[Rfam]
RNA sequence: UUGCGAAUAUUCUCGCUGUUCUGGUUUUGCAAUAAUCAGGGCAGGCUAAACAUUCGCUAUAUUAAAACCAUGCAUGUGUCCCCAGGCCUAGUUCUUUCCCUAUGUCUGGUUUUAUAAAUGCUGGUGAUAAAA
Numbered sequence: 001u002u003g004c005g006a007a008u009a010u011u012c013u014c015g016c017u018g019u020u021c022u023g024g025u026u027u028u029g030c031a032a033u034a035a036u037c038a039g040g041g042c043a044g045g046c047u048a049a050a051c052a053u054u055c056g057c058u059a060u061a062u063u064a065a066a067a068c069c070a071u072g073c074a075u076g077u078g079u080c081c082c083c084a085g086g087c088c089u090a091g092u093u094c095u096u097u098c099c100c101u102a103u104g105u106c107u108g109g110u111u112u113u114a115u116a117a118a119u120g121c122u123g124g125u126g127a128u129a130a131a132a
Base pairs, nucleotide, nucleotide: 003057004056005055016044017043018042019041020040021039022038023037024036025035026034067125068124069123070122072121073120082109083108084107085106086105087104089102090101091100